[Rfam]
RNA sequence: UGCCCAUGAUGACUCGCCAUGCUAAUACCGACCCCCAGCUGGGCCCGCAGCUUGGCUCUGGCGUGGGGGGGUGAGUUCAACUCUUUUCGCGAAGAGCUGAGGCGC
Number, nucleotide and partner (000 for none) at each position: 001u104002g103003c102004c101005c000006a000007u000008g000009a000010u000011g000012a000013c000014u000015c000016g000017c000018c000019a000020u000021g000022c000023u000024a000025a000026u000027a000028c000029c000030g000031a000032c000033c000034c000035c000036c000037a000038g000039c000040u000041g057042g056043g000044c054045c000046c000047g000048c000049a000050g000051c000052u000053u000054g044055g000056c042057u041058c000059u000060g000061g000062c000063g000064u000065g000066g000067g000068g000069g000070g000071g000072u000073g000074a000075g000076u000077u000078c000079a000080a000081c000082u000083c000084u000085u000086u000087u000088c000089g000090c000091g000092a000093a000094g000095a000096g000097c000098u000099g000100a000101g004102g003103c002104g001105c000
RNA: Small nucleolar RNA U6-53/MBII-28